[Rfam]
RNA: Mammalian CPEB3 ribozyme
Organism: Alligator mississippiensis
RNA sequence: UUGCAAGUUCAAGGCCAUAGCAGAAGCGCUCAUGGCACGGUCUGUCAGAUUCCACUGAAUCUGUGAAUUCUGCU
Number, nucleotide and partner (000 for none) at each position: 001u000002u000003g000004c000005a000006a000007g000008u000009u000010c000011a000012a000013g042014g041015c040016c039017a000018u000019a074020g073021c072022a071023g070024a069025a068026g038027c000028g036029c000030u000031c000032a000033u000034g000035g000036c028037a000038c026039g016040g015041u014042c013043u000044g000045u000046c063047a062048g061049a060050u059051u058052c057053c000054a000055c000056u000057g052058a051059a050060u049061c048062u047063g046064u000065g000066a000067a000068u025069u024070c023071u022072g021073c020074u019